[Rfam]
RNA sequence: AACCGGGCUGACCCAGUGCUGAGAGCGGUGAUAAUGGAUAGAUCGUAAAGACGCUGCAAGUACGUCCCUGUAAGCUCGAGCCGCGCCAUCCUUGGCGCGGACGCUUU
Numbered sequence: 001a002a003c004c005g006g007g008c009u010g011a012c013c014c015a016g017u018g019c020u021g022a023g024a025g026c027g028g029u030g031a032u033a034a035u036g037g038a039u040a041g042a043u044c045g046u047a048a049a050g051a052c053g054c055u056g057c058a059a060g061u062a063c064g065u066c067c068c069u070g071u072a073a074g075c076u077c078g079a080g081c082c083g084c085g086c087c088a089u090c091c092u093u094g095g096c097g098c099g100g101a102c103g104c105u106u107u
Base pairs, nucleotide, nucleotide: 015105016104017103018102019028020027021026030077031076041066042065043064045063046062047061052056081100082099083098084097085096086095087094088093
Background
Rfam assigns this 107-nucleotide RNA sequence from Pectobacterium atrosepticum to the family "Yersinia sRNA 224". The base pairs follow the family's consensus structure. The family has 5 seed sequences and 130 matches in Rfam 15.1. Rfam links the family to the GO term response to temperature stimulus. The organism belongs to Pectobacterium atrosepticum, within Bacteria.